[Rfam]
The record is a 116-nucleotide RNA sequence from Neomesorhizobium albiziae, which matches "Alphaproteobacterial ar15" in Rfam. The family has 61 seed sequences and 316 matches in Rfam 15.1. Lineage of the source: Bacteria > Pseudomonadota > Alphaproteobacteria > Phyllobacteriaceae > Neomesorhizobium. The literature on the family includes a 2010 paper in BMC Microbiol by Torres-Quesada et al., "The Sinorhizobium meliloti RNA chaperone Hfq influences central carbon metabolism and the symbiotic interaction with alfalfa".

RNA sequence: AUCUCCCGGGCGCGUUCCUCCUCCCAUUAGCUCCCGGUGAGUGUUCCCCUCUGGAGGUUUCGCCUUAACAGGCACUUCCAAUCAACUCAGCCGGAUCGUUUCGAUCCGGCUUUUUU
Number, nucleotide and partner (000 for none) at each position: 001a042002u000003c041004u040005c039006c000007c037008g000009g035010g033011c000012g031013c030014g000015u000016u000017c000018c000019u000020c000021c000022u000023c000024c000025c000026a000027u000028u000029a000030g013031c012032u000033c010034c000035c009036g000037g007038u000039g005040a004041g003042u001043g000044u000045u000046c000047c000048c000049c000050u000051c000052u080053g079054g078055a077056g076057g075058u074059u000060u000061c000062g000063c000064c000065u000066u000067a000068a000069c000070a000071g000072g000073c000074a058075c057076u056077u055078c054079c053080a052081a000082u000083c000084a000085a000086c000087u000088c000089a111090g110091c109092c108093g107094g106095a105096u104097c103098g102099u000100u000101u000102c098103g097104a096105u095106c094107c093108g092109g091110c090111u089112u000113u000114u000115u000116u000
Overview: The family's RNA type in Rfam is small RNA.